About this RNA:
The record is a 35-nucleotide RNA sequence from Kordia sp. SMS9, which matches "DUF805b RNA" in Rfam. The source organism's lineage runs through Bacteria, Pseudomonadati, Bacteroidota, Flavobacteriales and Kordia. A search with the family's covariance model found it, with a score of 48 bits.
RNA sequence: UAAGCGAAUUCCGAAAAGCUUUAAUAGAGUAGGAA
Numbered sequence: 001u002a003a004g005c006g007a008a009u010u011c012c013g014a015a016a017a018g019c020u021u022u023a024a025u026a027g028a029g030u031a032g033g034a035a
Base pairs, nucleotide, nucleotide: 002021003020004019005018010034011033012032